[Rfam]
RNA sequence: UGACAAAUGAGGUGAUAUAUGUAAAGUGCUUAGCACAGUGCCUGACACAUAAUAGGCAUUUAAUCAAUAUUUCCUUCCUUCUAAGAUGUCA
Numbered sequence: 001u002g003a004c005a006a007a008u009g010a011g012g013u014g015a016u017a018u019a020u021g022u023a024a025a026g027u028g029c030u031u032a033g034c035a036c037a038g039u040g041c042c043u044g045a046c047a048c049a050u051a052a053u054a055g056g057c058a059u060u061u062a063a064u065c066a067a068u069a070u071u072u073c074c075u076u077c078c079u080u081c082u083a084a085g086a087u088g089u090c091a
Stems, first nucleotide, its partner, number of pairs: 001091005